The family of this 67-nucleotide RNA from Phyllostomus discolor is "mir-290 microRNA precursor family".

RNA sequence: GUGGAACUCAAAAAAUGGCGGCACUUUCUCGUCAGAACCGAAAGUGCCCCCACAGUUUGAGUCCCAC
Numbered sequence: 001g002u003g004g005a006a007c008u009c010a011a012a013a014a015a016u017g018g019c020g021g022c023a024c025u026u027u028c029u030c031g032u033c034a035g036a037a038c039c040g041a042a043a044g045u046g047c048c049c050c051c052a053c054a055g056u057u058u059g060a061g062u063c064c065c066a067c
Stems, first nucleotide, its partner, number of pairs: 004064001006062007016052003020048009
About this RNA
Pairs were carried over by alignment from the consensus structure, which was predicted with RNAalifold. Clan: mir-290 clan. For this family Rfam cites "Embryonic stem cell-specific MicroRNAs" (Houbaviy et al., Dev Cell, 2003). Rfam links the family to the GO terms RISC complex and miRNA-mediated post-transcriptional gene silencing.